Y RNA: a 102-nucleotide sequence from Oryzias latipes. The base pairs follow the family's consensus structure, which is taken from published work. The organism belongs to Oryzias, within Eukaryota. Rfam's curators put it in the seed alignment. About the family: Y RNAs are components of the Ro ribonucleoprotein particle (Ro RNP), in association with Ro60 and La proteins.

RNA sequence: GGUUGGUCCGACGGCAGUGGGAUUUACAAUUGAUUGCCACAGUCACAGAAAACUUCUACGUUGCUUCUCUCCCCUCUCACUGCCGACCUUGACUAGCCUUUU
Numbered sequence: 001g002g003u004u005g006g007u008c009c010g011a012c013g014g015c016a017g018u019g020g021g022a023u024u025u026a027c028a029a030u031u032g033a034u035u036g037c038c039a040c041a042g043u044c045a046c047a048g049a050a051a052a053c054u055u056c057u058a059c060g061u062u063g064c065u066u067c068u069c070u071c072c073c074c075u076c077u078c079a080c081u082g083c084c085g086a087c088c089u090u091g092a093c094u095a096g097c098c099u100u101u102u
Stems, first nucleotide, its partner, number of pairs: 001098008010090002015085001016081006036064002039061002